RNA sequence: GGCAGUAUCAGCGAAAAAGAUGUGUGAAUCAUCUUCGCCGCAAGAGGAAGGGUUCCUCAGCAAUGAUUAUCAGCUGAGGGUUAGUCGGCCCUAAUCCAAUCCGUAAUUCGCGAUUGGAGAACAGGCAAACAGGUUAAUAUUCCUGUACCUCCUCACAUUAUUGGACGCUUUGGGAUAACAACAGCUGCGUUUUCGCGCAGUCUAAUCAGGUAAUGCAUGGCGAGCGUAAUGCUUAGAGCCUGCGAACCUGUCAAUUCGAACUGGGAAUAAUCCCGGUUUGUUGUGAUUCCUGGAGCCCUUGAAAACAUGUGAGAGACCGUACCAAGAACCAGCACAGGUCCUCUGGCUGAGUAGGCUUAGGCGUU
Numbered sequence: 001g002g003c004a005g006u007a008u009c010a011g012c013g014a015a016a017a018a019g020a021u022g023u024g025u026g027a028a029u030c031a032u033c034u035u036c037g038c039c040g041c042a043a044g045a046g047g048a049a050g051g052g053u054u055c056c057u058c059a060g061c062a063a064u065g066a067u068u069a070u071c072a073g074c075u076g077a078g079g080g081u082u083a084g085u086c087g088g089c090c091c092u093a094a095u096c097c098a099a100u101c102c103g104u105a106a107u108u109c110g111c112g113a114u115u116g117g118a119g120a121a122c123a124g125g126c127a128a129a130c131a132g133g134u135u136a137a138u139a140u141u142c143c144u145g146u147a148c149c150u151c152c153u154c155a156c157a158u159u160a161u162u163g164g165a166c167g168c169u170u171u172g173g174g175a176u177a178a179c180a181a182c183a184g185c186u187g188c189g190u191u192u193u194c195g196c197g198c199a200g201u202c203u204a205a206u207c208a209g210g211u212a213a214u215g216c217a218u219g220g221c222g223a224g225c226g227u228a229a230u231g232c233u234u235a236g237a238g239c240c241u242g243c244g245a246a247c248c249u250g251u252c253a254a255u256u257c258g259a260a261c262u263g264g265g266a267a268u269a270a271u272c273c274c275g276g277u278u279u280g281u282u283g284u285g286a287u288u289c290c291u292g293g294a295g296c297c298c299u300u301g302a303a304a305a306c307a308u309g310u311g312a313g314a315g316a317c318c319g320u321a322c323c324a325a326g327a328a329c330c331a332g333c334a335c336a337g338g339u340c341c342u343c344u345g346g347c348u349g350a351g352u353a354g355g356c357u358u359a360g361g362c363g364u365u
Base pairs, nucleotide, nucleotide: 017035018034019033020032021031022030036363037362038361039360044343045342046341047340050323051322055079056078057077058076059075060074064072065071086319087318088317090125091124095118096117097116098115099114100113102110103109129146130145131144132143133142149315150314151313153312154311155310156309162307163306167296168295169294170293171292172291173290174289175288178284179283180282181281182280184201185200186199187198188197207250208249209248216242219240220239221238223233224232225231263272329338330337345357346356347355